The family of this 129-nucleotide RNA sequence from Sporomusa malonica is "Molybdenum/Tungsten riboswitch aptamer (Moco RNA motif)". The match comes from Rfam's covariance-model search (77 bits). Taxonomically the source falls in Sporomusa (Bacteria, Bacillati, Negativicutes, Selenomonadales).
RNA sequence: UAAAAAAUGGCACUCCGAGCUGCAUGACCUAAGGGCAACUAUGGUCUUGCAGCCUGAACCUAGGUUCACAGGGCAGUGAAAGAAAUUUUACUGCCUCCACUACUUGGGAAGGAUGCGCUUCAUAAGUUU
Number, nucleotide and partner (000 for none) at each position: 001u000002a000003a123004a000005a000006a120007a000008u000009g000010g000011c115012a114013c000014u113015c112016c111017g000018a000019g053020c052021u051022g050023c049024a048025u000026g046027a045028c044029c043030u000031a000032a000033g040034g039035g000036c000037a000038a000039c034040u033041a000042u000043g029044g028045u027046c026047u000048u024049g023050c022051a021052g020053c019054c000055u068056g067057a066058a065059c064060c000061u000062a000063g000064g059065u058066u057067c056068a055069c000070a000071g096072g095073g094074c093075a092076g091077u090078g089079a088080a087081a086082g000083a000084a000085a000086u081087u080088u079089u078090a077091c076092u075093g074094c073095c072096u071097c107098c106099a000100c000101u000102a000103c000104u000105u000106g098107g097108g000109a000110a000111g016112g015113a014114u012115g011116c000117g000118c000119u000120u006121c000122a000123u003124a000125a000126g000127u000128u000129u000